[Rfam]
RNA sequence: GCUAUUGAGGUGGGAAAGGUUCCCCACGCGCUCGUCAGUGAUGGAGAUAUGACUGGCAAGUCACCAGAGACGCAGGAUCCGCCGCCCUGCCAAAUAAC
Numbered sequence: 001g002c003u004a005u006u007g008a009g010g011u012g013g014g015a016a017a018g019g020u021u022c023c024c025c026a027c028g029c030g031c032u033c034g035u036c037a038g039u040g041a042u043g044g045a046g047a048u049a050u051g052a053c054u055g056g057c058a059a060g061u062c063a064c065c066a067g068a069g070a071c072g073c074a075g076g077a078u079c080c081g082c083c084g085c086c087c088u089g090c091c092a093a094a095u096a097a098c
Stems, first nucleotide, its partner, number of pairs: 001098001003096002005093003010027005018083003029067001030061003072090005
Dot-bracket structure: (.(((((..(((((...[[[..))))).((((..........................))).....)....(((((....]]]..)))))))).)).)
This 98-nucleotide sequence from Paenactinomyces guangxiensis belongs to the Rfam family "skipping-rope RNA". By type it is a small RNA. The match comes from Rfam's covariance-model search (50 bits). Taxonomically the source falls in Paenactinomyces (Bacteria, Bacillati, Bacillota, Caryophanales).